[Rfam]
RNA sequence: CUCGAUAAAGGCAAACCGGUGGAAACGCCGGGACGCAAAGCUAGGGGACGGCGAAUCGAAUUAGUCGGUUCGACGUCAGCCCGGCCGCCGGAA
Numbered sequence: 001c002u003c004g005a006u007a008a009a010g011g012c013a014a015a016c017c018g019g020u021g022g023a024a025a026c027g028c029c030g031g032g033a034c035g036c037a038a039a040g041c042u043a044g045g046g047g048a049c050g051g052c053g054a055a056u057c058g059a060a061u062u063a064g065u066c067g068g069u070u071c072g073a074c075g076u077c078a079g080c081c082c083g084g085c086c087g088c089c090g091g092a093a
Base pairs, nucleotide, nucleotide: 003090004089011036012035016031017030018029019028020027021026034079040085041084042083044082045081046080047077048076049075
The record is a 93-nucleotide RNA sequence, which matches "c-di-GMP-I-GGC riboswitch aptamer" in Rfam. The match comes from Rfam's covariance-model search (66 bits). The family has 40 seed sequences and 1,298 matches in Rfam 15.1.